[Rfam]
This 179-nucleotide RNA sequence from Oscillospiraceae bacterium Marseille-Q3528 belongs to the Rfam family "Clostridiales-1 RNA".

RNA sequence: UGAUGUAAGUGUCAAAAGUCUGAAAUGCGAUUGUGCUUGCACAAAUGAGCAAUUCAGACUUAUUGACACGCCGAACACCGAAAACGUAAUAAAAUGUCGGGUAUACGGCAUUUUAUGGGAGUUUGAGGUGGGCGAGAAUUGCGCGAAUUGCGCAGCAAUGCAGCAAUUCAAAUACAUCA
Numbered sequence: 001u002g003a004u005g006u007a008a009g010u011g012u013c014a015a016a017a018g019u020c021u022g023a024a025a026u027g028c029g030a031u032u033g034u035g036c037u038u039g040c041a042c043a044a045a046u047g048a049g050c051a052a053u054u055c056a057g058a059c060u061u062a063u064u065g066a067c068a069c070g071c072c073g074a075a076c077a078c079c080g081a082a083a084a085c086g087u088a089a090u091a092a093a094a095u096g097u098c099g100g101g102u103a104u105a106c107g108g109c110a111u112u113u114u115a116u117g118g119g120a121g122u123u124u125g126a127g128g129u130g131g132g133c134g135a136g137a138a139u140u141g142c143g144c145g146a147a148u149u150g151c152g153c154a155g156c157a158a159u160g161c162a163g164c165a166a167u168u169c170a171a172a173u174a175c176a177u178c179a
Stems, first nucleotide, its partner, number of pairs: 001179007010068004016061009026051003031044005072134002076130004082124004089116011136169007147159004

The match comes from Rfam's covariance-model search (115 bits). The organism belongs to Oscillospiraceae, within Bacteria. The family has 194 seed sequences and 1,172 matches in Rfam 15.1. The family's RNA type in Rfam is small RNA.